[Rfam]
RNA: Archaeal large subunit ribosomal RNA, nucleotides 566 to 661
RNA sequence: GGCACGGCCCCAAAGGCAACCGCCUCGAAGGAACCCUCCGCGAGGAGGUAGUACGAGAGGCGGCGCCAGGGUCGUGCCGUCCGUUUUGAAAAACGG
Numbered sequence: 001g002g003c004a005c006g007g008c009c010c011c012a013a014a015g016g017c018a019a020c021c022g023c024c025u026c027g028a029a030g031g032a033a034c035c036c037u038c039c040g041c042g043a044g045g046a047g048g049u050a051g052u053a054c055g056a057g058a059g060g061c062g063g064c065g066c067c068a069g070g071g072u073c074g075u076g077c078c079g080u081c082c083g084u085u086u087u088g089a090a091a092a093a094c095g096g
Base pairs, nucleotide, nucleotide: 001078002077003076004075005074006073007072008071009070010069015067016066020063021062022061023060024059025058026057030054035048036047037046038045039044081096082095083094084093